[Rfam]
RNA sequence: AGUGUUCACGUAGAUGUUUAAGUUCUUGCAAUAGGUUUUUCCAAGCCAGUGAACACUG
Dot-bracket structure: (((((((((.(.(...........((((.((.......)).))))).)))))))))).
Numbered sequence: 001a002g003u004g005u006u007c008a009c010g011u012a013g014a015u016g017u018u019u020a021a022g023u024u025c026u027u028g029c030a031a032u033a034g035g036u037u038u039u040u041c042c043a044a045g046c047c048a049g050u051g052a053a054c055a056c057u058g
Stems, first nucleotide, its partner, number of pairs: 001057009011048001013046001025045004030040002
A member of the RNA family "mir-1206 microRNA precursor family" from Callithrix jacchus, 58 nucleotides long. NCBI's taxonomy places the organism under Eukaryota, Euteleostomi, Sarcopterygii, Mammalia, Callithrix. The family has 2 seed sequences and 20 matches in Rfam 15.1.